The family of this 59-nucleotide RNA from Nocardioides ganghwensis is "msiK RNA".

[Rfam]
RNA sequence: GACCCCGGUCACUUCACUACGGAUCGUCCGGCACGUACCUGCCGGUGAAGGAGCAGACA
Numbered sequence: 001g002a003c004c005c006c007g008g009u010c011a012c013u014u015c016a017c018u019a020c021g022g023a024u025c026g027u028c029c030g031g032c033a034c035g036u037a038c039c040u041g042c043c044g045g046u047g048a049a050g051g052a053g054c055a056g057a058c059a
Stems, first nucleotide, its partner, number of pairs: 010051001012050005028045006
The organism belongs to Nocardioides, within Bacteria.